[Rfam]
RNA sequence: UCGACAGCGCCGAGCUCCAUCCGUCGAAAGAGGGACCACGACCCACCUGGAUGGAGGCGGGGGACCCACCGGUCCACCGAAGGACCUGGAACCGCUUGCGGUUCCUUGGGGUGAAGCCGGCGGAUUUCCGCCGGCCGGGUGACCUCUCAGACCCGAACCCGACAGCUGACCUCGCGGGCGCUCACGAGAGGACCU
Numbered sequence: 001u002c003g004a005c006a007g008c009g010c011c012g013a014g015c016u017c018c019a020u021c022c023g024u025c026g027a028a029a030g031a032g033g034g035a036c037c038a039c040g041a042c043c044c045a046c047c048u049g050g051a052u053g054g055a056g057g058c059g060g061g062g063g064a065c066c067c068a069c070c071g072g073u074c075c076a077c078c079g080a081a082g083g084a085c086c087u088g089g090a091a092c093c094g095c096u097u098g099c100g101g102u103u104c105c106u107u108g109g110g111g112u113g114a115a116g117c118c119g120g121c122g123g124a125u126u127u128c129c130g131c132c133g134g135c136c137g138g139g140u141g142a143c144c145u146c147u148c149a150g151a152c153c154c155g156a157a158c159c160c161g162a163c164a165g166c167u168g169a170c171c172u173c174g175c176g177g178g179c180g181c182u183c184a185c186g187a188g189a190g191g192a193c194c195u
Stems, first nucleotide, its partner, number of pairs: 008180004015056009057175006067108002109160003117134004137154004
RNA: c-di-AMP riboswitch aptamer (ydaO/yuaA leader)